[Rfam]
RNA sequence: GAUUUAUAAAGAAGAGGUGAGAGAACAGGCUCUGUGACCCUCUGGCAACCAUCACAUCCCAGCUGAAAGGUGCCAAAACCUGCCCAAUGUGGGAACUAUAAGUU
Dot-bracket structure: ((((((((....(((((...(((..[[[[)))......)))))((((.((.(((.........)))..))))))....]]]]((((...))))...))))))))
This 104-nucleotide sequence from Belliella baltica belongs to the Rfam family "SAM riboswitch aptamer (S box leader)". The base pairs follow the family's consensus structure, which is taken from published work. Rfam links the family to the GO term regulation of gene expression.